[Rfam]
RNA sequence: ACAACGGCUCUUUUCAGAGCCACCCACCUUCUCAAAGAGGGAGCUG
Numbered sequence: 001a002c003a004a005c006g007g008c009u010c011u012u013u014u015c016a017g018a019g020c021c022a023c024c025c026a027c028c029u030u031c032u033c034a035a036a037g038a039g040g041g042a043g044c045u046g
Base pairs, nucleotide, nucleotide: 006021007020008019009018010017011016
Dot-bracket structure: .....((((((....)))))).........................
The record is a 46-nucleotide RNA from Neotoma lepida, which matches "Histone 3' UTR stem-loop" in Rfam. It scores 38 bits against the family's covariance model. Rfam describes the family as follows. The mRNAs of metazoan histone genes lack a poly-A tail. 3' end processing occurs at a site between a highly conserved stem-loop (modelled by this family) and a purine rich region around 20 nts downstream (the histone downstream element, or HDE). The stem-loop is bound by a 31 kDa stem-loop binding protein (SLBP - also termed the histone hairpin binding protein, or HBP). On this family, see Williams and Marzluff, Nucleic Acids Res 1995: "The sequence of the stem and flanking sequences at the 3' end of histone mRNA are critical determinants for the binding of the stem-loop binding protein".